RNA sequence: CGUUGAGCCACACGCACAAUGCCUGCAGAUGAAAGGGUUUUGUUCGUUCGGCUCGCGUU
Numbered sequence: 001c002g003u004u005g006a007g008c009c010a011c012a013c014g015c016a017c018a019a020u021g022c023c024u025g026c027a028g029a030u031g032a033a034a035g036g037g038u039u040u041u042g043u044u045c046g047u048u049c050g051g052c053u054c055g056c057g058u059u
Stems, first nucleotide, its partner, number of pairs: 001057002004055006013046002016043004021038002
Dot-bracket structure: ((.((((((...((.((((.((..............)).)))).))...))))))))..
A member of the RNA family "mir-375 microRNA precursor family" from Ictalurus punctatus, 59 nucleotides long. The base pairs follow the family's consensus structure, which was predicted with RNAalifold. The source organism's lineage runs through Eukaryota, Bilateria, Teleostomi, Clupeocephala and Ictalurus. Its family is annotated with RISC complex and miRNA-mediated post-transcriptional gene silencing in the Gene Ontology.